Nucleotides: 081
Stems, first nucleotide, its partner, number of pairs: 001081004
Number, partner (000 for none) and nucleotide at each position: 001081g002080g003079g004078a005000u006000a007000u008000g009000a010000u011000g012000a013000u014000g015000a016000a017000u018000u019000a020000u021000u022000g023000a024000u025000u026000g027000g028000u029000c030000c031000g032000u033000g034000u035000u036000u037000c038000u039000g040000a041000u042000u043000a044000c045000a046000a047000u048000g049000u050000g051000a052000c053000u054000g055000a056000g057000a058000u059000a060000g061000u062000u063000u064000a065000u066000u067000u068000u069000g070000a071000u072000u073000u074000c075000u076000g077000a078004u079003c080002c081001c
Rfam assigns this 81-nucleotide sequence from Dendrobium catenatum to the family "Small nucleolar RNA SNORD18". The match comes from Rfam's covariance-model search (42 bits). The organism belongs to Dendrobium, within Eukaryota. Rfam links the family to the GO terms RNA processing and nucleolus. Its Rfam clan is "SNORD18 clan". On this family, see Giorgi et al., EMBO J 2001: "Release of U18 snoRNA from its host intron requires interaction of Nop1p with the Rnt1p endonuclease". Rfam 15.1 lists 2,622 matches to the family in 960 species.